[Rfam]
Notes: Rfam assigns this 83-nucleotide sequence from Pelosinus fermentans to the family "S10-Clostridia ribosomal protein leader".
Nucleotides: 083
Stems, first nucleotide, its partner, number of pairs: 014051003018048004025039005058082004063078004
Number, partner (000 for none) and nucleotide at each position: 001000a002000a003000c004000a005000u006000g007000c008000g009000a010000u011000g012000a013000c014051g015050u016049g017000a018048a019047a020046g021045g022000u023000u024000g025039c026038c027037u028036g029035c030000a031000a032000g033000g034000u035029g036028c037027g038026g039025g040000g041000g042000g043000a044000a045021u046020u047019u048018u049016c050015a051014c052000g053000g054000a055000g056000a057000a058082u059081g060080u061079c062000c063078g064077u065076u066075c067000u068000a069000g070000a071000a072000a073000c074000u075066g076065g077064g078063c079061g080060a081059u082058a083000a
Lineage of the source: Bacteria > Bacillati > Bacillota > Negativicutes > Pelosinus fermentans. On this family, see Eckert and Weinberg, BMC Microbiol 2020: "Discovery of 20 novel ribosomal leader candidates in bacteria and archaea".